[Rfam]
This 91-nucleotide sequence from Sesamum indicum belongs to the Rfam family "Plastid-psbM 3UTR RNA". The family has 237 seed sequences and 627 matches in Rfam 15.1. Rfam's curators write: Plastid psbM is a non-coding RNA (ncRNA) recognised in plastids. It was found in the three prime untranslated region (3UTR) of psbM gene, its 3UTR location suggests a role in transcript maturation. A reference for the family is Richter et al. (2023), "Retrograde signaling in plants: A critical review focusing on the GUN pathway and beyond", Plant Commun.
RNA sequence: AGAUAGAUAGUAUGGUAGAAAGAAGGAUUCAUCUAUUUCUUUCUACCAUACUAUCUAUCUCUUAGUCUAUAUAGUCUAUAAGGGUGUAAUC
Numbered sequence: 001a002g003a004u005a006g007a008u009a010g011u012a013u014g015g016u017a018g019a020a021a022g023a024a025g026g027a028u029u030c031a032u033c034u035a036u037u038u039c040u041u042u043c044u045a046c047c048a049u050a051c052u053a054u055c056u057a058u059c060u061c062u063u064a065g066u067c068u069a070u071a072u073a074g075u076c077u078a079u080a081a082g083g084g085u086g087u088a089a090u091c
Stems, first nucleotide, its partner, number of pairs: 006055020